[Rfam]
Overview
The record is a 77-nucleotide sequence from Alligator mississippiensis, which matches "Mammalian CPEB3 ribozyme" in Rfam. Its family is annotated with RNA nuclease activity in the Gene Ontology. NCBI's taxonomy places the organism under Eukaryota, Bilateria, Vertebrata, Alligatorinae, Alligator. The base pairs follow the family's consensus structure, which is taken from published work.
RNA sequence: AGUUGCAAGUUCAAAGCCAGAGCAGAAGUGCUCACAGCGCGGCCCUAUCAGAUUCCAGUGAAUCUGCAAAUUCUGCU
Numbered sequence: 001a002g003u004u005g006c007a008a009g010u011u012c013a014a015a016g017c018c019a020g021a022g023c024a025g026a027a028g029u030g031c032u033c034a035c036a037g038c039g040c041g042g043c044c045c046u047a048u049c050a051g052a053u054u055c056c057a058g059u060g061a062a063u064c065u066g067c068a069a070a071u072u073c074u075g076c077u
Base pairs, nucleotide, nucleotide: 016043017042018041021077022076023075024074025073026072027071028040029039030038049066050065051064052063053062054061055060